Rfam assigns this 150-nucleotide RNA from Candidatus Tokpelaia sp. JSC188 to the family "Alphaproteobacterial sRNA ar45". It scores 48 bits against the family's covariance model. Taxonomically the source falls in Candidatus Tokpelaia (Bacteria, Pseudomonadati, Alphaproteobacteria, Hyphomicrobiales).

RNA sequence: GCUCGGAAUUGCACGUGCUUAUGGAUGUUCGCCGUUUUUCGAACGAUGAGGUGGAGGCGGUAUGAGAUGGUCUGUACUUAAUUGUUCCAGUUUCUUUCAAUUCACUGCCUAGAAUGAAUAUAUAUUGAAGCAACGACGAAGCGAGCCUUU
Numbered sequence: 001g002c003u004c005g006g007a008a009u010u011g012c013a014c015g016u017g018c019u020u021a022u023g024g025a026u027g028u029u030c031g032c033c034g035u036u037u038u039u040c041g042a043a044c045g046a047u048g049a050g051g052u053g054g055a056g057g058c059g060g061u062a063u064g065a066g067a068u069g070g071u072c073u074g075u076a077c078u079u080a081a082u083u084g085u086u087c088c089a090g091u092u093u094c095u096u097u098c099a100a101u102u103c104a105c106u107g108c109c110u111a112g113a114a115u116g117a118a119u120a121u122a123u124a125u126u127g128a129a130g131c132a133a134c135g136a137c138g139a140a141g142c143g144a145g146c147c148u149u150u
Base pairs, nucleotide, nucleotide: 001146002145003144004143009136010135011134016132017131018130023123025121026120027119028118029117030116031061032060033059034058035057037051038050039049040048041047072090073089074088076086092114093113094112